Shown here is a 74-nucleotide RNA sequence from Perca flavescens, a member of the family "mir-196 microRNA precursor family".

RNA sequence: UCAGUGGUUUAGGUAGUUUCAUGUUGUUGGGGUCCAUUUCUAACUCUACAACAUGAAACUGUCUUAAUUGCCGC
Numbered sequence: 001u002c003a004g005u006g007g008u009u010u011a012g013g014u015a016g017u018u019u020c021a022u023g024u025u026g027u028u029g030g031g032g033u034c035c036a037u038u039u040c041u042a043a044c045u046c047u048a049c050a051a052c053a054u055g056a057a058a059c060u061g062u063c064u065u066a067a068u069u070g071c072c073g074c
Stems, first nucleotide, its partner, number of pairs: 004071006011064009022053006029046003
Dot-bracket structure: ...((((((.(((((((((..((((((.(((............))).))))))..))))))))).))))))...
Gene Ontology terms of the family: gene silencing by miRNA and RISC complex. The literature on the family includes a 2003 paper in RNA by Lagos-Quintana et al., "New microRNAs from mouse and human". A search with the family's covariance model found it, with a score of 75 bits. The base pairs follow the family's consensus structure, which was predicted with PFOLD. The organism belongs to Perca, within Eukaryota.